[Rfam]
RNA sequence: CUCCAAUGAUGAUUCAGCCAUGCUAAUACUGAUGCAUCAGGCAGAUACAGUGUGUCUGCUUGGGUGCAAGUGAGUUCAACUCACCUUCUCACGCUGAUGGGA
Numbered sequence: 001c002u003c004c005a006a007u008g009a010u011g012a013u014u015c016a017g018c019c020a021u022g023c024u025a026a027u028a029c030u031g032a033u034g035c036a037u038c039a040g041g042c043a044g045a046u047a048c049a050g051u052g053u054g055u056c057u058g059c060u061u062g063g064g065u066g067c068a069a070g071u072g073a074g075u076u077c078a079a080c081u082c083a084c085c086u087u088c089u090c091a092c093g094c095u096g097a098u099g100g101g102a
Stems, first nucleotide, its partner, number of pairs: 001101003042058005
Rfam assigns this 102-nucleotide RNA from Sphaeramia orbicularis to the family "Small nucleolar RNA U6-53/MBII-28". Its family is annotated with RNA processing and nucleolus in the Gene Ontology. A reference for the family is Huttenhofer et al. (2001), "RNomics: an experimental approach that identifies 201 candidates for novel, small, non-messenger RNAs in mouse", EMBO J. It scores 81 bits against the family's covariance model.